A member of the RNA family "Hairpin ribozyme 1 from viruses-like metatranscriptomes", 123 nucleotides long.
RNA sequence: AGUCUGUCCUGAUGCUCGGUUGCUAACCGAGCGUACAGAGAAGACACCAGAGGAAACACUCUCCAAGCUAGUAAAGAGUGAGCUGCGAAGCUCACUAUAGCGAGGAGGGGAAAAUUAACCUGG
Numbered sequence: 001a002g003u004c005u006g007u008c009c010u011g012a013u014g015c016u017c018g019g020u021u022g023c024u025a026a027c028c029g030a031g032c033g034u035a036c037a038g039a040g041a042a043g044a045c046a047c048c049a050g051a052g053g054a055a056a057c058a059c060u061c062u063c064c065a066a067g068c069u070a071g072u073a074a075a076g077a078g079u080g081a082g083c084u085g086c087g088a089a090g091c092u093c094a095c096u097a098u099a100g101c102g103a104g105g106a107g108g109g110g111a112a113a114a115u116u117a118a119c120c121u122g123g
Stems, first nucleotide, its partner, number of pairs: 002045003009038003012034003017029004047123004059109006

It is one of the family's seed sequences.
Rfam links the family to the GO term RNA nuclease activity.